[Rfam]
RNA sequence: AGCUUCCCCGGACAUGACACAACAUCCUGCUGCGAUGUUGUGCGACCUGCAGUGUCAGUCCAAGGAAGCA
Numbered sequence: 001a002g003c004u005u006c007c008c009c010g011g012a013c014a015u016g017a018c019a020c021a022a023c024a025u026c027c028u029g030c031u032g033c034g035a036u037g038u039u040g041u042g043c044g045a046c047c048u049g050c051a052g053u054g055u056c057a058g059u060c061c062a063a064g065g066a067a068g069c070a
Base pairs, nucleotide, nucleotide: 002069003068004067005066006065007064010061011060012059013058021039022038023037024036025035026034044056045055046054
The record is a 70-nucleotide sequence from Cladonia borealis, which matches "bZIP non canonical Hac1/Xbp1 intron" in Rfam. From the family's description: bZIP intron RNA is a non-canonical intron that was first reported in HAC1 gene in yeast and XBP1 gene in Metazoa.